Rfam assigns this 85-nucleotide sequence from Alkaliphilus sp. to the family "c-di-GMP-I-GGC riboswitch aptamer". NCBI's taxonomy places the organism under Bacteria, Bacillota, Clostridia, Natronincolaceae, Alkaliphilus. It scores 64 bits against the family's covariance model.

[Rfam]
RNA sequence: AACGAUAAAGGCAAACCAUCUGAAAGGGUGGGACGCAAAGCCAAAGGGCCUUUCAUAGAAGUGAAUGGCAGCCGAGCUACCGAAG
Dot-bracket structure: ..((......((...((((((....))))))..[))..(((....(((((................))).]))..)))..))...
The base pairs follow the family's consensus structure, which is taken from published work.